[Rfam]
RNA sequence: AUGUGUUCUAAAUGAAUUCUGGGCCUUUUAUAAGACCCUUUGAUACAAUUUUUGGAGCCCUGGCUUUGUCCAGGGA
Numbered sequence: 001a002u003g004u005g006u007u008c009u010a011a012a013u014g015a016a017u018u019c020u021g022g023g024c025c026u027u028u029u030a031u032a033a034g035a036c037c038c039u040u041u042g043a044u045a046c047a048a049u050u051u052u053u054g055g056a057g058c059c060c061u062g063g064c065u066u067u068g069u070c071c072a073g074g075g076a
Base pairs, nucleotide, nucleotide: 021038022037023036025034026033027032058075059074060073061072062071063070